Shown here is a 330-nucleotide RNA from Bursaphelenchus xylophilus, a member of the family "Nuclear RNase P". Gene Ontology terms of the family: tRNA processing, ribonuclease P complex and ribonuclease P activity. Ribonuclease P (RNase P) is a ubiquitous endoribonuclease, found in archaea, bacteria and eukarya as well as chloroplasts and mitochondria. Its best characterised activity is the generation of mature 5'-ends of tRNAs by cleaving the 5'-leader elements of precursor-tRNAs. Cellular RNase Ps are ribonucleoproteins. Taxonomically the source falls in Bursaphelenchus (Eukaryota, Metazoa, Eumetazoa, Tylenchina). The family is grouped with related families in Rfam's "RNaseP clan". It is annotated as a ribozyme.
RNA sequence: UUGGCGGUCAGACGGCUUGAGGGAGAGACGAAACGCACUCUGAUGUGCGAAAGCAACGGCACUCCCGGGAAGGUCUGAGAAAGGCGUCCGUUGCGGUCACACAUUCGCAACGUUUCCUCGUGAAGGGGAUCGUCCCCGUGGACGAUGCACUGUACCGGAAAUUUGCCCGCGCCGGCUCCAACUCCGGGACAAGAAGCCGGUCCGGUCGCGCGCGAUCGGAAAGGUGGAUCCCAUUUCGGGGCUCUAGGCGAGCGCGUUUGGAUCACAGUGCAGACGCAGCGCUUUGAGUGCGAUUGCCGUGAAACCCAAUUCAGACUACUCGACGGCCAA
Numbered sequence: 001u002u003g004g005c006g007g008u009c010a011g012a013c014g015g016c017u018u019g020a021g022g023g024a025g026a027g028a029c030g031a032a033a034c035g036c037a038c039u040c041u042g043a044u045g046u047g048c049g050a051a052a053g054c055a056a057c058g059g060c061a062c063u064c065c066c067g068g069g070a071a072g073g074u075c076u077g078a079g080a081a082a083g084g085c086g087u088c089c090g091u092u093g094c095g096g097u098c099a100c101a102c103a104u105u106c107g108c109a110a111c112g113u114u115u116c117c118u119c120g121u122g123a124a125g126g127g128g129a130u131c132g133u134c135c136c137c138g139u140g141g142a143c144g145a146u147g148c149a150c151u152g153u154a155c156c157g158g159a160a161a162u163u164u165g166c167c168c169g170c171g172c173c174g175g176c177u178c179c180a181a182c183u184c185c186g187g188g189a190c191a192a193g194a195a196g197c198c199g200g201u202c203c204g205g206u207c208g209c210g211c212g213c214g215a216u217c218g219g220a221a222a223g224g225u226g227g228a229u230c231c232c233a234u235u236u237c238g239g240g241g242c243u244c245u246a247g248g249c250g251a252g253c254g255c256g257u258u259u260g261g262a263u264c265a266c267a268g269u270g271c272a273g274a275c276g277c278a279g280c281g282c283u284u285u286g287a288g289u290g291c292g293a294u295u296g297c298c299g300u301g302a303a304a305c306c307c308a309a310u311u312c313a314g315a316c317u318a319c320u321c322g323a324c325g326g327c328c329a330a
Stems, first nucleotide, its partner, number of pairs: 001330004007324003015298001017296001021066005034049005075314005085276004115129005130145006146272007168256005